Rfam assigns this 32-nucleotide sequence from Geobacillus thermocatenulatus to the family "L31-Firmicutes ribosomal protein leader". It is one of the family's seed sequences. The source organism's lineage runs through Bacteria, Bacillati, Caryophanales, Anoxybacillaceae and Geobacillus thermocatenulatus. Pairs were carried over by alignment from the consensus structure, which is taken from published work.
[Rfam]
RNA sequence: CUCUGUUUCGAUCAGAUACAGGGCGGAAGGAG
Dot-bracket structure: (((((..((.....))..))))).........